[Rfam]
RNA sequence: GCCGAGCUCAGUUGCGCGAGCUUGUGACCUAAGUUGGGGCAUCAAGAUGGCUUGGACACUGGUUGAGUCCAUUCGGUAGGGUCAGGGGAAUGUGUGAUUUGCCGACUUGCCCGUUCCAAGUUGGGAGUUGAAUCGUACGGUCCUAGUGAAAGCUUGGACUGUGUGGUUCUUAGAGGGGAGGGUACAGCGUCAGGCUGGUUUCACAGAGCAGCGAAGACCUCCCGCUCUUGGCAGUGGAAGGAUAACGAGUUGGUGCACCCUUGAUCCCGUAACACCGUAUGGGCUGAGCUCGGUUGGACAACCAUCUUU
Number, nucleotide and partner (000 for none) at each position: 001g040002c039003c038004g023005a022006g021007c020008u019009c018010a000011g000012u000013u000014g000015c000016g000017c000018g009019a008020g007021c006022u005023u004024g000025u000026g000027a000028c037029c036030u000031a000032a000033g000034u000035u000036g029037g028038g003039g002040c001041a000042u000043c000044a308045a307046g306047a305048u304049g303050g302051c000052u301053u300054g299055g000056a000057c296058a295059c293060u292061g291062g289063u288064u287065g000066a285067g284068u000069c282070c281071a280072u279073u000074c277075g276076g275077u274078a000079g267080g266081g265082u264083c263084a262085g261086g260087g000088g259089a000090a000091u000092g258093u257094g256095u000096g000097a254098u000099u000100u000101g000102c253103c252104g251105a250106c249107u248108u247109g246110c000111c241112c240113g000114u239115u238116c237117c236118a235119a000120g232121u231122u230123g229124g228125g227126a226127g225128u224129u000130g169131a168132a167133u166134c165135g164136u163137a162138c161139g160140g159141u158142c157143c156144u000145a154146g153147u152148g000149a000150a000151a000152g147153c146154u145155u000156g143157g142158a141159c140160u139161g138162u137163g136164u135165g134166g133167u132168u131169c130170u175171u000172a000173g000174a000175g170176g223177g222178g221179a220180g219181g218182g000183u000184a000185c000186a000187g000188c213189g212190u211191c000192a000193g000194g000195c206196u205197g204198g000199u000200u000201u000202c000203a000204c197205a196206g195207a000208g000209c000210a000211g190212c189213g188214a000215a000216g000217a000218c181219c180220u179221c178222c177223c176224g128225c127226u126227c125228u124229u123230g122231g121232c120233a000234g000235u118236g117237g116238a115239a114240g112241g111242a000243u000244a000245a000246c109247g108248a107249g106250u105251u104252g103253g102254u097255g000256c094257a093258c092259c088260c086261u085262u084263g083264a082265u081266c080267c079268c000269g000270u000271a000272a000273c000274a077275c076276c075277g074278u000279a072280u071281g070282g069283g000284c067285u066286g000287a064288g063289c062290u000291c061292g060293g059294u000295u058296g057297g000298a000299c054300a053301a052302c050303c049304a048305u047306c046307u045308u044309u000
RNA: Plant signal recognition particle RNA